This 93-nucleotide RNA from Panthera tigris belongs to the Rfam family "mir-337 microRNA precursor family".

RNA sequence: GUAGUCAGUAGGUGGGGGGUGAGAACGGCUCCAUACAGGAGUUGACGCACAGUUACCCAGCUCCUAUAUGGCGCCUUUCCUCAUCCCCUUCAA
Numbered sequence: 001g002u003a004g005u006c007a008g009u010a011g012g013u014g015g016g017g018g019g020u021g022a023g024a025a026c027g028g029c030u031c032c033a034u035a036c037a038g039g040a041g042u043u044g045a046c047g048c049a050c051a052g053u054u055a056c057c058c059a060g061c062u063c064c065u066a067u068a069u070g071g072c073g074c075c076u077u078u079c080c081u082c083a084u085c086c087c088c089u090u091c092a093a
Stems, first nucleotide, its partner, number of pairs: 014089009023079003027075003031071005037065008047054001
Its family is annotated with RISC complex, long-term synaptic potentiation and miRNA-mediated post-transcriptional gene silencing in the Gene Ontology.
Lineage of the source: Eukaryota > Teleostomi > Theria > Laurasiatheria > Panthera tigris.